[Rfam]
RNA sequence: AGAGGUUGCAACCUCUAUAAAUAGGGCUUUAAGUUGCAAGCGUUCCCGCUGGAAACAGUGGGAGAUAGCC
Dot-bracket structure: [[[[.((((((.]]]]........[[[[....[)))))).].((((((((......))))))))..]]]]
Numbered sequence: 001a002g003a004g005g006u007u008g009c010a011a012c013c014u015c016u017a018u019a020a021a022u023a024g025g026g027c028u029u030u031a032a033g034u035u036g037c038a039a040g041c042g043u044u045c046c047c048g049c050u051g052g053a054a055a056c057a058g059u060g061g062g063a064g065a066u067a068g069c070c
Stems, first nucleotide, its partner, number of pairs: 001016004006039006025070004033041001043064008